The record is a 129-nucleotide RNA from Arctia plantaginis, which matches "U4atac minor spliceosomal RNA" in Rfam. It is annotated as a spliceosomal small nuclear RNA. About the family: U4atac is an essential component of the minor U12-type spliceosome complex which is required for removal of the rarer class of eukaryotic introns (AT-AC, U12-type). NCBI's taxonomy places the organism under Eukaryota, Metazoa, Dicondylia, Ditrysia, Arctia. Its family is annotated with spliceosomal tri-snRNP complex assembly, U4atac snRNP and mRNA 5'-splice site recognition in the Gene Ontology.
[Rfam]
RNA sequence: AACUUCCUUGUCUUGGGGAGCAUAGUGCGCAGUGAUCGUAAAGUGAGAGCACUUAUACUGACACCCAUAAGUUAAUCUUAUAUCGCGCCCGACUGCCAUUCAGGGAGUCCGAGCGCAAUUUUUGACAUG
Numbered sequence: 001a002a003c004u005u006c007c008u009u010g011u012c013u014u015g016g017g018g019a020g021c022a023u024a025g026u027g028c029g030c031a032g033u034g035a036u037c038g039u040a041a042a043g044u045g046a047g048a049g050c051a052c053u054u055a056u057a058c059u060g061a062c063a064c065c066c067a068u069a070a071g072u073u074a075a076u077c078u079u080a081u082a083u084c085g086c087g088c089c090c091g092a093c094u095g096c097c098a099u100u101c102a103g104g105g106a107g108u109c110c111g112a113g114c115g116c117a118a119u120u121u122u123u124g125a126c127a128u129g
Stems, first nucleotide, its partner, number of pairs: 005019005020058001022056002024053005030047001037043001085116004090111001091109004096104001